RNA: Selenocysteine transfer RNA
Organism: Lingula anatina
RNA sequence: GCUCGGAUGAAUCUCAGUGGACUGGGGUGCAGGCUUCAAACCUGUAGCCGAUUAGCGUCGGAGUGGUUCAAUUCCACCUUUCGAGC
Numbered sequence: 001g002c003u004c005g006g007a008u009g010a011a012u013c014u015c016a017g018u019g020g021a022c023u024g025g026g027g028u029g030c031a032g033g034c035u036u037c038a039a040a041c042c043u044g045u046a047g048c049c050g051a052u053u054a055g056c057g058u059c060g061g062a063g064u065g066g067u068u069c070a071a072u073u074c075c076a077c078c079u080u081u082c083g084a085g086c
Stems, first nucleotide, its partner, number of pairs: 001086007009078001012027006028046006048061005063077004